RNA sequence: GUCACGGCUUCGUGCAACGGACCACAAUAAGGCCCAAUUUCGGUCCUGCACUCGCCCCUAUAGACUGCAAGAUGUAGAGCUUACGACCCGGUCCGGAAGAGCUUCGGAUUCCUCAGCCCCCAGCCCCCCGGGGUUCAACGGAUCGGGUCAAUUCUACCGCGUACGGUUCAAUCCCCAAUUGCUUCAAGGCCGGCUUCCGCCGGCCUUUUU
Dot-bracket structure: ....................................(...(......)...)...........................(.((((((((((((((...(((((((((........((.....))...)))))))))..)))))))))))...........))).).....................((((((((....))))))))....
RNA: Bradyrhizobiaceae sRNA BjrC174